[Rfam]
RNA sequence: AAUUCUAUUUGUAGGAACAAAGAGAAGCAAAUAUAUUAUAUACUAGAUAAGUAUCAAUAUGUAAUGAGA
Numbered sequence: 001a002a003u004u005c006u007a008u009u010u011g012u013a014g015g016a017a018c019a020a021a022g023a024g025a026a027g028c029a030a031a032u033a034u035a036u037u038a039u040a041u042a043c044u045a046g047a048u049a050a051g052u053a054u055c056a057a058u059a060u061g062u063a064a065u066g067a068g069a
Base pairs, nucleotide, nucleotide: 003022004021006019008017009016010015043068044067051060052059053058
Background:
The family of this 69-nucleotide RNA sequence from Populus trichocarpa is "Plastid-clpP 5UTR RNA". Rfam 15.1 lists 2,105 matches to the family in 526 species. The organism belongs to Populus, within Eukaryota. By type it is a cis-regulatory element. The match comes from Rfam's covariance-model search (69 bits). Rfam's curators write: Plastid clpP is a non-coding RNA (ncRNA) recognised in plastids. The base pairs follow the family's consensus structure, which was predicted with LocARNA. On this family, see Richter et al., Plant Commun 2023: "Retrograde signaling in plants: A critical review focusing on the GUN pathway and beyond".